[Rfam]
Description
A member of the RNA family "Flavo-1 RNA" from Mucilaginibacter pedocola, 67 nucleotides long.

RNA sequence: AACUAAACCCGAUAGCAGCGGAAAGCCCGCUUCUACCAGCGGCUUGCAGCGGAUAGCGGGACUGGCG
Numbered sequence: 001a002a003c004u005a006a007a008c009c010c011g012a013u014a015g016c017a018g019c020g021g022a023a024a025g026c027c028c029g030c031u032u033c034u035a036c037c038a039g040c041g042g043c044u045u046g047c048a049g050c051g052g053a054u055a056g057c058g059g060g061a062c063u064g065g066c067g
Base pairs, nucleotide, nucleotide: 009059010058011057013055014054018050019049023045024044025043026042028041029040030039031038